Rfam assigns this 130-nucleotide RNA from Triplophysa rosa to the family "Small nucleolar RNA SNORA77". ACA63 (SNORA77) is a member of the H/ACA class of snoRNAs that guide the sites of modification of uridines to pseudouridines. This snoRNA was identified by computational screening and its expression in mouse experimentally verified by Northern blot and primer extension analysis. ACA63 is proposed to guide the pseudouridylation of 18S rRNA U814. Rfam links the family to the GO terms nucleolus and RNA processing. It is annotated as an H/ACA-box small nucleolar RNA. On this family, see Schattner et al., RNA 2006: "A computational screen for mammalian pseudouridylation guide H/ACA RNAs". It scores 58 bits against the family's covariance model.

RNA sequence: GCAGACUCACUCUGUUUAAGGCCGAAAUAUCCGGCCUUAAAUUUUUUCUGUCUGCUACAGUAACAUGCAGAUUGUUAUGAAGCGCCUUGCCAUUCACUUAGCAGGUGAUCGUAUCUUCUCAGACAUUUGU
Numbered sequence: 001g002c003a004g005a006c007u008c009a010c011u012c013u014g015u016u017u018a019a020g021g022c023c024g025a026a027a028u029a030u031c032c033g034g035c036c037u038u039a040a041a042u043u044u045u046u047u048c049u050g051u052c053u054g055c056u057a058c059a060g061u062a063a064c065a066u067g068c069a070g071a072u073u074g075u076u077a078u079g080a081a082g083c084g085c086c087u088u089g090c091c092a093u094u095c096a097c098u099u100a101g102c103a104g105g106u107g108a109u110c111g112u113a114u115c116u117u118c119u120c121a122g123a124c125a126u127u128u129g130u
Base pairs, nucleotide, nucleotide: 001055002054003053004052005051006050014042015041016040017039018038019037020036022034023033024032069119070118071117074115076113077112078111079110083107084106085105086104